[Rfam]
This 80-nucleotide sequence from Octodon degus belongs to the Rfam family "mir-3473 microRNA precursor family". The source organism's lineage runs through Eukaryota, Craniata, Vertebrata, Boreoeutheria and Octodon. The match comes from Rfam's covariance-model search (74 bits). Rfam 15.1 lists 1,094 matches to the family in 20 species.

RNA sequence: AUCACUGAGCCAUCUCACCAGCCCACAAACUAUUUCUUAAGAAAAACAAGUUCCCGGGGCUGGUGAGAUGGCUCAGUGGU
Numbered sequence: 001a002u003c004a005c006u007g008a009g010c011c012a013u014c015u016c017a018c019c020a021g022c023c024c025a026c027a028a029a030c031u032a033u034u035u036c037u038u039a040a041g042a043a044a045a046a047c048a049a050g051u052u053c054c055c056g057g058g059g060c061u062g063g064u065g066a067g068a069u070g071g072c073u074c075a076g077u078g079g080u
Base pairs, nucleotide, nucleotide: 002079003078004077005076006075007074008073009072010071011070012069013068014067015066016065017064018063019062020061021060022059023058024057